[Rfam]
RNA sequence: AAUGAAAUGAAACUCUGAGCUGCUUCGACCUAAGUCAGUCAAUGAUAUGGUGUUGCAGCCGUGGCUUAAUGUCACCAGGGUGUAUGGUAGAAAUGCCUGCGCCUCCCAAUAUUGGAAAGGUGUUUUAUGGUAUCGCAA
Numbered sequence: 001a002a003u004g005a006a007a008u009g010a011a012a013c014u015c016u017g018a019g020c021u022g023c024u025u026c027g028a029c030c031u032a033a034g035u036c037a038g039u040c041a042a043u044g045a046u047a048u049g050g051u052g053u054u055g056c057a058g059c060c061g062u063g064g065c066u067u068a069a070u071g072u073c074a075c076c077a078g079g080g081u082g083u084a085u086g087g088u089a090g091a092a093a094u095g096c097c098u099g100c101g102c103c104u105c106c107c108a109a110u111a112u113u114g115g116a117a118a119g120g121u122g123u124u125u126u127a128u129g130g131u132a133u134c135g136c137a138a
Stems, first nucleotide, its partner, number of pairs: 003132002011124003015120002019059005026052001028051003034046004061075005078104006086097004105115002